[Rfam]
RNA: c-di-GMP-I-GGC riboswitch aptamer
Organism: Candidatus Desulfofervidus auxilii
RNA sequence: UUGGAAAAAGCCAAAUCUACCGUGAGGUAGAGACGGAAAGCCACGGAACUUAAAAAACGGCAGAUGGUGGCUAGUGAUUGAUGAAAAUAACUAAUUGCUGAUUGCUAUUUAUUAUUUUUAAGUUAGCCGGGUUGCCAAAA
Number, nucleotide and partner (000 for none) at each position: 001u140002u000003g000004g136005a000006a000007a000008a000009a000010g000011c036012c035013a000014a000015a000016u031017c030018u029019a028020c027021c026022g000023u000024g000025a000026g021027g020028u019029a018030g017031a016032g000033a000034c126035g012036g011037a000038a000039a133040g132041c131042c130043a000044c129045g128046g127047a124048a123049c122050u121051u120052a119053a118054a117055a116056a115057a000058c000059g000060g000061c000062a000063g000064a000065u000066g000067g000068u000069g000070g000071c000072u000073a000074g000075u000076g000077a000078u000079u000080g000081a000082u000083g000084a000085a000086a000087a000088u000089a000090a000091c000092u000093a000094a000095u000096u000097g000098c000099u000100g000101a000102u000103u000104g000105c000106u000107a000108u000109u000110u000111a000112u000113u000114a000115u056116u055117u054118u053119u052120a051121a050122g049123u048124u047125a000126g034127c046128c045129g044130g042131g041132u040133u039134g000135c000136c004137a000138a000139a000140a001